This 57-nucleotide sequence from Streptomyces sp. 846.5 belongs to the Rfam family "msiK RNA".

Nucleotides: 057
Base pairs, nucleotide, nucleotide: 010049011048012047013046014045015044026043027042028041029040030039031038
Number, partner (000 for none) and nucleotide at each position: 001000c002000a003000c004000c005000a006000u007000c008000c009000g010049c011048c012047u013046u014045u015044a016000c017000u018000c019000g020000g021000a022000u023000c024000g025000u026043c027042c028041g029040g030039c031038a032000c033000g034000u035000u036000c037000c038031u039030g040029c041028c042027g043026g044015u045014g046013a047012a048011g049010g050000a051000g052000a053000g054000c055000a056000g057000c

It scores 49 bits against the family's covariance model. NCBI's taxonomy places the organism under Bacteria, Bacillati, Actinomycetes, Kitasatosporales, Streptomyces. It is annotated as a cis-regulatory element.